[Rfam]
LOOT RNA: a 118-nucleotide RNA sequence. It is annotated as a small RNA. The base pairs follow the family's consensus structure, which is taken from published work.

RNA sequence: GGCCUAAACCCCGCGAUUUCCUCGCCGGGCAUGGUCGAAAAUCGUCAGGAACAUAGAGAACCCGUCAUAGGGCGUUCCUGACGUUAUGCAGGGAAACUUGCAUAAGGCCGAAAGGCCU
Numbered sequence: 001g002g003c004c005u006a007a008a009c010c011c012c013g014c015g016a017u018u019u020c021c022u023c024g025c026c027g028g029g030c031a032u033g034g035u036c037g038a039a040a041a042u043c044g045u046c047a048g049g050a051a052c053a054u055a056g057a058g059a060a061c062c063c064g065u066c067a068u069a070g071g072g073c074g075u076u077c078c079u080g081a082c083g084u085u086a087u088g089c090a091g092g093g094a095a096a097c098u099u100g101c102a103u104a105a106g107g108c109c110g111a112a113a114g115g116c117c118u
Base pairs, nucleotide, nucleotide: 001036002035003034004033009029010028011027013025014024015023043083044082045081046080047079048078049077050076051075052074061072062071063070085104086103087102088101089100090099091098092097105118106117107116108115109114